[Rfam]
The record is a 594-nucleotide part of an RNA from Ectocarpus sp. CCAP 1310/34, which matches "Eukaryotic small subunit ribosomal RNA" in Rfam.
It scores 1781 bits against the family's covariance model.
Gene Ontology terms of the family: structural constituent of ribosome and ribosome.
The organism belongs to Ectocarpus, within Eukaryota.
A reference for the family is Yusupov et al. (2001), "Crystal structure of the ribosome at 5.5 A resolution", Science.
Pairs were carried over by alignment from the consensus structure, which is taken from published work.
RNA sequence: AGUCAUACGCUUGUCUCAAAGAUUAAGCCAUGCAUGUCUAAGUAUAAGCGCUUUAUACUGUGAAACUGCGAAUGGCUCAUUAUAUCAGUCAUAGUUUAUUUGAAAGUCCCUUACUACAUGGAUAACCGUAGUAAUUCUAGAGCUAAUACAUGCACAAAAGCCCAACUGCCUCGGCGGACGGGUUGCAUUGAUUAGACCGAAACCAAUGCGUCUUCGGACGGUUUUGUGGUGAAUCAUAAUCACUUGCGGAUCGCACGCUUCGGCGGCGACGUUUCAUUCAAGUUUCUGCCCUAUCAGCUUUGGAUGGUAGGGUAUUGGCCUACCAUGGCUUUAACGGGUAACGGGGAAUUGGGGUUCGAUUCCGGAGAGGGAGCCUGAGAGACGGCUACCACAUCCAAGGAAGGCAGCAGGCGCGUAAAUUACCCAAUCCUGACACAGGGAGGUAGUGACAAUAAAUAACAAUGCCGGGCUUUUACAAGUCUGGCAAUUGGAAUGAGAGCAAUUUAAAUCCAUCAUCGAGGAUCAAUUGGAGGGCAAGUCUGGUGCCAGCAGCCGCGGUAAUUCCAGCUCCAAUAGCGUAUAUUAAAGUUGCUG
Number, nucleotide and partner (000 for none) at each position: 001a584002g583003u582004c000005a581006u580007a579008c578009g577010c576011u575012u000013g000014u454015c000016u452017c000018a000019a000020a447021g414022a000023u000024u000025a000026a000027g412028c411029c410030a000031u409032g408033c407034a000035u000036g069037u068038c000039u000040a000041a067042g066043u065044a000045u000046a000047a000048g061049c060050g000051c000052u000053u000054u000055a000056u000057a000058c000059u000060g049061u048062g000063a000064a000065a043066c042067u041068g037069c036070g000071a000072a000073u000074g000075g000076c367077u366078c365079a000080u000081u000082a000083u000084a000085u000086c288087a287088g286089u000090c000091a283092u282093a000094g000095u281096u280097u000098a000099u000100u000101u276102g275103a274104a273105a000106g000107u000108c000109c000110c000111u000112u000113a000114c000115u000116a000117c152118a151119u150120g149121g000122a000123u000124a000125a000126c142127c000128g000129u139130a138131g137132u000133a000134a000135u000136u000137c131138u130139a129140g000141a000142g126143c000144u000145a000146a000147u000148a000149c120150a119151u118152g117153c000154a000155c000156a000157a000158a000159a184160g183161c182162c181163c180164a000165a000166c177167u176168g000169c000170c000171u000172c000173g000174g000175c000176g167177g166178a000179c000180g163181g162182g161183u160184u159185g000186c000187a000188u000189u242190g241191a240192u239193u238194a237195g000196a000197c000198c000199g000200a000201a000202a230203c229204c228205a227206a000207u000208g000209c000210g219211u218212c217213u000214u000215c000216g000217g212218a211219c210220g000221g000222u000223u000224u000225u000226g000227u205228g204229g203230u202231g000232a000233a000234u000235c000236a000237u194238a193239a192240u191241c190242a189243c000244u000245u000246g000247c000248g000249g000250a000251u269252c268253g267254c266255a000256c265257g264258c263259u000260u000261c000262g000263g258264c257265g256266g254267c253268g252269a251270c000271g000272u000273u104274u103275c102276a101277u000278u000279c000280a096281a095282g092283u091284u000285u000286c088287u087288g086289c000290c338291c337292u336293a000294u000295c000296a000297g329298c328299u327300u000301u000302g000303g000304a326305u325306g324307g323308u322309a321310g320311g319312g000313u000314a000315u000316u000317g000318g000319c311320c310321u309322a308323c307324c306325a305326u304327g299328g298329c297330u000331u000332u000333a000334a000335c000336g292337g291338g290339u000340a000341a000342c364343g363344g362345g361346g357347a356348a355349u354350u000351g000352g000353g000354g349355u348356u347357c346358g000359a000360u000361u345362c344363c343364g342365g078366a077367g076368a000369g390370g389371g000372a387373g386374c385375c000376u000377g000378a000379g000380a000381g000382a000383c000384g000385g374386c373387u372388a000389c370390c369391a000392c403393a000394u401395c400396c000397a000398a000399g000400g395401a394402a000403g392404g000405c000406a000407g033408c032409a031410g029411g028412c027413g000414c021415g000416u000417a000418a000419a000420u445421u000422a444423c443424c442425c000426a000427a000428u440429c439430c438431u437432g436433a000434c000435a000436c432437a431438g430439g429440g428441a000442g424443g423444u422445a420446g000447u020448g000449a000450c000451a000452a016453u000454a014455a000456a000457u000458a000459a000460c490461a489462a488463u486464g485465c484466c483467g482468g481469g480470c479471u478472u477473u000474u000475a000476c000477a472478a471479g470480u469481c468482u467483g466484g465485c464486a463487a000488u462489u461490g460491g000492a000493a000494u000495g000496a000497g517498a516499g514500c000501a513502a000503u000504u000505u000506a000507a000508a000509u000510c000511c000512a000513u501514c499515a000516u498517c497518g000519a000520g000521g000522a000523u000524c000525a000526a000527u573528u572529g571530g570531a569532g568533g000534g000535c000536a000537a000538g000539u000540c567541u566542g565543g564544u000545g000546c000547c000548a000549g556550c555551a000552g000553c000554c000555g550556c549557g000558g000559u000560a000561a000562u000563u000564c543565c542566a541567g540568c532569u531570c530571c529572a528573a527574u000575a011576g010577c009578g008579u007580a006581u005582a003583u002584u001585a000586a000587a000588g000589u000590u000591g000592c000593u000594g000